[Rfam]
RNA sequence: CUUGAGGGUCGCUAGGGUUCCGAUGCGCGGCAGAAGAUGCAUUCGCCGCGCAUGUCUGGUCCGAGAGCGGCCCGGUCCCGCCGGGCGCAAGCCCCCUCGCGGGGCUCCACGGAGGGACAAAAGCCCGGGAGGA
Numbered sequence: 001c002u003u004g005a006g007g008g009u010c011g012c013u014a015g016g017g018u019u020c021c022g023a024u025g026c027g028c029g030g031c032a033g034a035a036g037a038u039g040c041a042u043u044c045g046c047c048g049c050g051c052a053u054g055u056c057u058g059g060u061c062c063g064a065g066a067g068c069g070g071c072c073c074g075g076u077c078c079c080g081c082c083g084g085g086c087g088c089a090a091g092c093c094c095c096c097u098c099g100c101g102g103g104g105c106u107c108c109a110c111g112g113a114g115g116g117a118c119a120a121a122a123g124c125c126c127g128g129g130a131g132g133a
Stems, first nucleotide, its partner, number of pairs: 007072006015062002020059002022056001023053009074106008108128001110131001114126003
A member of the RNA family "Guanidine-I riboswitch aptamer" from Derxia gummosa, 133 nucleotides long. For this family Rfam cites "Metabolism of Free Guanidine in Bacteria Is Regulated by a Widespread Riboswitch Class" (Nelson et al., Mol Cell, 2017). The match comes from Rfam's covariance-model search (80 bits). Lineage of the source: Bacteria > Betaproteobacteria > Burkholderiales > Alcaligenaceae > Derxia gummosa. This family represents a conserved RNA structure found upstream of the ykkC and yxkD genes in Bacillus subtilis and related genes in other bacteria. The function of this family is unclear although it has been suggested that it may function to switch on efflux pumps and detoxification systems in response to harmful environmental molecules.